[Rfam]
The record is a 78-nucleotide RNA from Diachasma alloeum, which matches "mir-980 microRNA precursor family" in Rfam. Taxonomically the source falls in Diachasma (Eukaryota, Metazoa, Pancrustacea, Pterygota). Rfam links the family to the GO terms RISC complex and miRNA-mediated post-transcriptional gene silencing. The family's consensus secondary structure was predicted with RNAalifold. The match comes from Rfam's covariance-model search (64 bits).

RNA sequence: AUUACGUUGCAGCUCAUCAUGGGGCACUUUGCUGAUUAAUUAAAACGCUAGCUGCCUUUUGAAGGGCAACAACGUGGU
Numbered sequence: 001a002u003u004a005c006g007u008u009g010c011a012g013c014u015c016a017u018c019a020u021g022g023g024g025c026a027c028u029u030u031g032c033u034g035a036u037u038a039a040u041u042a043a044a045a046c047g048c049u050a051g052c053u054g055c056c057u058u059u060u061g062a063a064g065g066g067c068a069a070c071a072a073c074g075u076g077g078u
Stems, first nucleotide, its partner, number of pairs: 004075006012067004017062003023056002028051002031048002